This 70-nucleotide RNA sequence from Rodentolepis nana belongs to the Rfam family "HDV ribozyme from F. prausnitzii". Rfam links the family to the GO term catalytic activity. Lineage of the source: Eukaryota > Opisthokonta > Cestoda > Eucestoda > Rodentolepis.
[Rfam]
RNA sequence: GGGGUGCGAUAGACUAACCUCCACGUGGUGCACCCUGGGCAACGUAUACUCAUACGGCAAAAACGGUCGA
Numbered sequence: 001g002g003g004g005u006g007c008g009a010u011a012g013a014c015u016a017a018c019c020u021c022c023a024c025g026u027g028g029u030g031c032a033c034c035c036u037g038g039g040c041a042a043c044g045u046a047u048a049c050u051c052a053u054a055c056g057g058c059a060a061a062a063a064c065g066g067u068c069g070a
Base pairs, nucleotide, nucleotide: 001036002035003034004033005032006031007030017029018028019027043056044055045054046053047052
Dot-bracket structure: (((((((.........(((.......))))))))))......(((((....)))))..............